[Rfam]
RNA sequence: UCCGACCGGCCGGACACGCAUGUGACCGGCCCACAAGUGGAGGCUCCGAUCUCCCACCCGGCCGACCUCAGGUUGGCGGGUCAACGGUCUGGCUGCGCCCCGCGGAGAUUUCGCGGCGGUGCUCCUGAUCCACGUGGAGCCCCGCCUGUGUCCCGUCCGGGGCGUUUUGC
Numbered sequence: 001u002c003c004g005a006c007c008g009g010c011c012g013g014a015c016a017c018g019c020a021u022g023u024g025a026c027c028g029g030c031c032c033a034c035a036a037g038u039g040g041a042g043g044c045u046c047c048g049a050u051c052u053c054c055c056a057c058c059c060g061g062c063c064g065a066c067c068u069c070a071g072g073u074u075g076g077c078g079g080g081u082c083a084a085c086g087g088u089c090u091g092g093c094u095g096c097g098c099c100c101c102g103c104g105g106a107g108a109u110u111u112c113g114c115g116g117c118g119g120u121g122c123u124c125c126u127g128a129u130c131c132a133c134g135u136g137g138a139g140c141c142c143c144g145c146c147u148g149u150g151u152c153c154c155g156u157c158c159g160g161g162g163c164g165u166u167u168u169g170c
Stems, first nucleotide, its partner, number of pairs: 004089005012027002028082005034060001037057004041052002061077007097163006103155003112150003115146005121140005
RNA: Streptomyces RNA 1601
Organism: Streptomyces piniterrae